Shown here is an 87-nucleotide sequence from Poecilia reticulata, a member of the family "let-7 microRNA precursor family". Gene Ontology terms of the family: miRNA-mediated post-transcriptional gene silencing and RISC complex. Rfam describes the family as follows. This family represents the microRNAs (miRNA) let-7 and mir-98. let-7 was identified from a study of developmental timing in C. elegans, and was later shown to be part of a much larger class of non-coding RNAs termed miRNAs. The organism belongs to Poecilia, within Eukaryota. Pairs were carried over by alignment from the consensus structure, which was predicted with RNAalifold. The match comes from Rfam's covariance-model search (60 bits). The literature on the family includes a 2001 paper in Nat Rev Genet by Rougvie, "Control of developmental timing in animals".
[Rfam]
RNA sequence: GCAGGUUGAGGUAGUAGUUUGUGCUGUUGGCCGGGUCGACGUGCUGCCCCAUAUGGAGAUGACUGCGCAAUCUACUGCCUUGCCGGC
Numbered sequence: 001g002c003a004g005g006u007u008g009a010g011g012u013a014g015u016a017g018u019u020u021g022u023g024c025u026g027u028u029g030g031c032c033g034g035g036u037c038g039a040c041g042u043g044c045u046g047c048c049c050c051a052u053a054u055g056g057a058g059a060u061g062a063c064u065g066c067g068c069a070a071u072c073u074a075c076u077g078c079c080u081u082g083c084c085g086g087c
Base pairs, nucleotide, nucleotide: 001087002086004084005083006082008081009080010079011078012077013076014075015074016073017072019070020069021068022067023066024065026063027062033049034048035047036046052057